[Rfam]
The family of this 126-nucleotide RNA from Streptomyces sp. GMY02 is "Streptomyces RNA 3920". Lineage of the source: Bacteria > Bacillati > Actinomycetes > Kitasatosporales > Streptomyces. The literature on the family includes a 2011 paper in RNA Biol by Vockenhuber et al., "Deep sequencing-based identification of small non-coding RNAs in Streptomyces coelicolor". It is annotated as a small RNA. Pairs were carried over by alignment from the consensus structure. Identified by deep sequencing of transcriptome at the end of exponential growth phase. Sequencing size consistent with northern blot size. Streptomyces specific.

RNA sequence: GAUAGGUCUCUGUCGCUACCGUGAUUGGACACUGACAAAGAGUCAACUAGCCUGGUGCGCACGGUUCUUCACCGGUGGAACCGAAGGCGGUCCGAGCCACGAGGGGGGAGGCUCGGACCGCCCGCC
Dot-bracket structure: (((((....)))))((((..(((......)))((((.....))))..))))......(....((....))....)((....))..(((((((((((((.(......)..)))))))))))))....
Numbered sequence: 001g002a003u004a005g006g007u008c009u010c011u012g013u014c015g016c017u018a019c020c021g022u023g024a025u026u027g028g029a030c031a032c033u034g035a036c037a038a039a040g041a042g043u044c045a046a047c048u049a050g051c052c053u054g055g056u057g058c059g060c061a062c063g064g065u066u067c068u069u070c071a072c073c074g075g076u077g078g079a080a081c082c083g084a085a086g087g088c089g090g091u092c093c094g095a096g097c098c099a100c101g102a103g104g105g106g107g108g109a110g111g112c113u114c115g116g117a118c119c120g121c122c123c124g125c126c
Stems, first nucleotide, its partner, number of pairs: 001014005015051004021032003033045004058075001063070002076083002086122013100107001